The record is a 511-nucleotide part of an RNA from Medioppia subpectinata, which matches "Eukaryotic large subunit ribosomal RNA" in Rfam.
Pairs were carried over by alignment from the consensus structure, which is taken from published work.
Lineage of the source: Eukaryota > Chelicerata > Acariformes > Oppiidae > Medioppia.

RNA sequence: GAAGACCCUGUUGAGCUUGACUCUAGUCUGAAUCUGUGAAGAGACAUGAGAGGUGUAGCAUAAGUGGGAGAAGCAAUUCGCCGGUGAAAUACCACUACUUUCAUAGUUUCUUUACUGACUCGGUUAAGUGGAAAGCGGGACCACACGGUUCCUCGUUUCUUGACUCAAGUGUUCGAGGUGUUCGGCUCCUCGUGGGCCGGGCACUGCGGCACGAUCCCCUCCGAGGACAGCUUCAGGCGGGGAGUUUGACUGGGGCGGUACAUCUGUCAAAAGGUAACGCAGGUGUCCUAAGGACAGCUCAGCGAGGACAGAAACCUCGCGUAGAGCAAAAGGGCAAAUGCUGUCUUGAUCCUGAUUUUCAGUACGAAUACGGACCGCGAAAGCGGGGCCUAUCGAUCCUUUUGCCUUAUUAAGAGUUUUAAGCAAGAGGUGUCAGAAAAGUUACCACAGGGAUAACUGGCUUGUGGCGGCCAAGCGUUCAUAGCGACGUCGCUUUUUGAUCCUUCGAUGU
Dot-bracket structure: ......((((.(((((((.((((...((((((...(((((((((((((((((..........(((((..((......))............))))).))))))).))))))))))...(((((......(((....(((((......)))))................(((((..................................)))))..)))...)))))......))))))....))))..((((.....))).)((((((...........))))))..((....((((((((.((((((.......))))))...))((......))....))))))....(((..((((.......))))..))).(((....))).))..........((((((.....(((.......))).)))))).........)))))..))))))........(.(.(.((((((...((.......))...))))))...)).)..........
Numbered sequence: 001g002a003a004g005a006c007c008c009u010g011u012u013g014a015g016c017u018u019g020a021c022u023c024u025a026g027u028c029u030g031a032a033u034c035u036g037u038g039a040a041g042a043g044a045c046a047u048g049a050g051a052g053g054u055g056u057a058g059c060a061u062a063a064g065u066g067g068g069a070g071a072a073g074c075a076a077u078u079c080g081c082c083g084g085u086g087a088a089a090u091a092c093c094a095c096u097a098c099u100u101u102c103a104u105a106g107u108u109u110c111u112u113u114a115c116u117g118a119c120u121c122g123g124u125u126a127a128g129u130g131g132a133a134a135g136c137g138g139g140a141c142c143a144c145a146c147g148g149u150u151c152c153u154c155g156u157u158u159c160u161u162g163a164c165u166c167a168a169g170u171g172u173u174c175g176a177g178g179u180g181u182u183c184g185g186c187u188c189c190u191c192g193u194g195g196g197c198c199g200g201g202c203a204c205u206g207c208g209g210c211a212c213g214a215u216c217c218c219c220u221c222c223g224a225g226g227a228c229a230g231c232u233u234c235a236g237g238c239g240g241g242g243a244g245u246u247u248g249a250c251u252g253g254g255g256c257g258g259u260a261c262a263u264c265u266g267u268c269a270a271a272a273g274g275u276a277a278c279g280c281a282g283g284u285g286u287c288c289u290a291a292g293g294a295c296a297g298c299u300c301a302g303c304g305a306g307g308a309c310a311g312a313a314a315c316c317u318c319g320c321g322u323a324g325a326g327c328a329a330a331a332g333g334g335c336a337a338a339u340g341c342u343g344u345c346u347u348g349a350u351c352c353u354g355a356u357u358u359u360c361a362g363u364a365c366g367a368a369u370a371c372g373g374a375c376c377g378c379g380a381a382a383g384c385g386g387g388g389c390c391u392a393u394c395g396a397u398c399c400u401u402u403u404g405c406c407u408u409a410u411u412a413a414g415a416g417u418u419u420u421a422a423g424c425a426a427g428a429g430g431u432g433u434c435a436g437a438a439a440a441g442u443u444a445c446c447a448c449a450g451g452g453a454u455a456a457c458u459g460g461c462u463u464g465u466g467g468c469g470g471c472c473a474a475g476c477g478u479u480c481a482u483a484g485c486g487a488c489g490u491c492g493c494u495u496u497u498u499g500a501u502c503c504u505u506c507g508a509u510g511u
Stems, first nucleotide, its partner, number of pairs: 007451004012447002014443005020245004027237006036115010046104007063096005070079002119225005130217003137152005169212005248261001249259003262284006287388002293345006299325002302320006326335002350374003355369004376385003399429006410422003460501001462499001464498001466494006475485002